A member of the RNA family "c-di-AMP riboswitch aptamer (ydaO/yuaA leader)" from Megasphaera geminata, 129 nucleotides long.
The base pairs follow the family's consensus structure.
NCBI's taxonomy places the organism under Bacteria, Bacillati, Negativicutes, Veillonellales, Megasphaera geminata.
RNA sequence: AAAGAUGCAGUGCCGAAUCCCGGUUUCCGGGUACGGGGGAACCAGUUUUUAGGGGUGAAGCCGCUAAGCGGCGGGCUGCCUUCAAGCCUAACCCGUCAGUUAACCUCGGAGGCGGAGAGGAGUUUUUAU
Numbered sequence: 001a002a003a004g005a006u007g008c009a010g011u012g013c014c015g016a017a018u019c020c021c022g023g024u025u026u027c028c029g030g031g032u033a034c035g036g037g038g039g040a041a042c043c044a045g046u047u048u049u050u051a052g053g054g055g056u057g058a059a060g061c062c063g064c065u066a067a068g069c070g071g072c073g074g075g076c077u078g079c080c081u082u083c084a085a086g087c088c089u090a091a092c093c094c095g096u097c098a099g100u101u102a103a104c105c106u107c108g109g110a111g112g113c114g115g116a117g118a119g120g121a122g123u124u125u126u127u128a129u
Base pairs, nucleotide, nucleotide: 011114012113013112014111019031020030034108035107036106037105038104043052053094054093055092061071062070063069064068074088075087076086077085